The family of this 79-nucleotide RNA sequence from Medicago truncatula is "MIR5269 microRNA precursor family". Its family is annotated with miRNA-mediated post-transcriptional gene silencing and RISC complex in the Gene Ontology. The family's consensus secondary structure was predicted with RNAalifold.
RNA sequence: UUGGUUUAAAUCAUUGUGGGUCUACACUUUGAAAAUUGAUCCUACACAAAGUGAUGGGACAUACAUUGAUUCCAUCCGA
Number, nucleotide and partner (000 for none) at each position: 001u079002u078003g077004g076005u000006u074007u000008a000009a071010a070011u069012c068013a067014u000015u065016g064017u063018g062019g000020g000021u000022c057023u056024a055025c053026a052027c051028u050029u049030u048031g047032a000033a000034a000035a000036u000037u000038g000039a000040u000041c000042c000043u000044a000045c000046a000047c031048a030049a029050a028051g027052u026053g025054a000055u024056g023057g022058g000059a000060c000061a000062u018063a017064c016065a015066u000067u013068g012069a011070u010071u009072c000073c000074a006075u000076c004077c003078g002079a001